Background:
Rfam assigns this 256-nucleotide RNA from Clostridioides difficile to the family "T-box leader". The organism belongs to Clostridioides, within Bacteria. The family's consensus secondary structure is taken from published work. The match comes from Rfam's covariance-model search (129 bits). It is annotated as a cis-regulatory leader.
RNA sequence: UUAAAGACUUUGAAAGGAAGAGUAGUUAUAGAAUGUAAUUAAAGCGAGUUGGUGAUGGUGUGAGACCAAUAUGAAGUCUAUAGUGAAGAACAUCCUGGAGUUGCUAACCGAAAUUUUAAAAGAGUAGGCUUAGUCGGAACCAAACCGUUAUCAUAUUGGGGUGUAUCGAGUAAUAUCUGUACAUUGUGAGCUGGGUUUGAAUUUAUUUCAAACUAAUCAGGGUGGUACCGCGGAAAAGCAACCUUUCGUCCCUUUU
Numbered sequence: 001u002u003a004a005a006g007a008c009u010u011u012g013a014a015a016g017g018a019a020g021a022g023u024a025g026u027u028a029u030a031g032a033a034u035g036u037a038a039u040u041a042a043a044g045c046g047a048g049u050u051g052g053u054g055a056u057g058g059u060g061u062g063a064g065a066c067c068a069a070u071a072u073g074a075a076g077u078c079u080a081u082a083g084u085g086a087a088g089a090a091c092a093u094c095c096u097g098g099a100g101u102u103g104c105u106a107a108c109c110g111a112a113a114u115u116u117u118a119a120a121a122g123a124g125u126a127g128g129c130u131u132a133g134u135c136g137g138a139a140c141c142a143a144a145c146c147g148u149u150a151u152c153a154u155a156u157u158g159g160g161g162u163g164u165a166u167c168g169a170g171u172a173a174u175a176u177c178u179g180u181a182c183a184u185u186g187u188g189a190g191c192u193g194g195g196u197u198u199g200a201a202u203u204u205a206u207u208u209c210a211a212a213c214u215a216a217u218c219a220g221g222g223u224g225g226u227a228c229c230g231c232g233g234a235a236a237a238g239c240a241a242c243c244u245u246u247c248g249u250c251c252c253u254u255u256u
Stems, first nucleotide, its partner, number of pairs: 007101002015096004025084006038072002048070006104133004109128001135147003195213007219253004230249005